[Rfam]
Shown here is an 82-nucleotide RNA from Pangasianodon hypophthalmus, a member of the family "mir-23 microRNA precursor family".
The base pairs follow the family's consensus structure, which was predicted with PFOLD.
RNA sequence: GGUGGAGAGGGUUCCUGGCACCGUGAUUUGGUGGACAAACAGAAGUAAAAAAAAUCACAUUGCCAGGGAUUUCCACUCCUGC
Numbered sequence: 001g002g003u004g005g006a007g008a009g010g011g012u013u014c015c016u017g018g019c020a021c022c023g024u025g026a027u028u029u030g031g032u033g034g035a036c037a038a039a040c041a042g043a044a045g046u047a048a049a050a051a052a053a054a055u056c057a058c059a060u061u062g063c064c065a066g067g068g069a070u071u072u073c074c075a076c077u078c079c080u081g082c
Stems, first nucleotide, its partner, number of pairs: 001082001004079003009074002011070010023058007
Dot-bracket structure: (..(((..((((((((((((..(((((((......................)))))))..))))))))))..))..)))..)
For this family Rfam cites "The developmental miRNA profiles of zebrafish as determined by small RNA cloning" (Chen et al., Genes Dev, 2005).